[Rfam]
About this RNA:
This 75-nucleotide RNA sequence from Hyphomicrobium sulfonivorans belongs to the Rfam family "Makes More Granules Regulator RNA (mmgR)". SuhB later renamed mmgR (makes more granules regulator) was a putative non-coding RNA found multiple times in the Agrobacterium tumefaciens genome and related alpha-proteobacteria. Other non-coding RNAs uncovered in the same analysis include: speF, ybhL, metA, and serC.Several studies inSinorhizobium meliloti showed that suhB element is indeed a non-coding RNA:firstly it was detected on Northern blot and called Sm8RNA, secondly in an RNAseq study referred to as SmelC689.The mutant phenotype's (strain lacking the small RNA) cytoplasm contains higher content of polyhydroxybutyrate (PBH)storage granules than wild type strain. The sRNA is required to limit the PBH intracellular accumulation when the nitrogen-fixing Sinorhizobium meliloti is under condition of surplus carbon in relation to nitrogen. It has been renamed to mmgR. Further study confirmed that mmgR fine-tunes the regulation of PBH storage.Northern blot confirmed the expression of the sRNA in other rhizobia species. A search with the family's covariance model found it, with a score of 41 bits. Lineage of the source: Bacteria > Pseudomonadota > Hyphomicrobiales > Hyphomicrobiaceae > Hyphomicrobium. Rfam 15.1 lists 1,791 matches to the family in 918 species. Pairs were carried over by alignment from the consensus structure.
RNA sequence: AGUGCCAGCCCUUCGGGGCGUUUCCUCCCUAGACUCGCGGGAUUUGUCGAACGUUCCCGCACCUUUUCCGUACGC
Numbered sequence: 001a002g003u004g005c006c007a008g009c010c011c012u013u014c015g016g017g018g019c020g021u022u023u024c025c026u027c028c029c030u031a032g033a034c035u036c037g038c039g040g041g042a043u044u045u046g047u048c049g050a051a052c053g054u055u056c057c058c059g060c061a062c063c064u065u066u067u068c069c070g071u072a073c074g075c
Stems, first nucleotide, its partner, number of pairs: 008019004037060005042054002045051001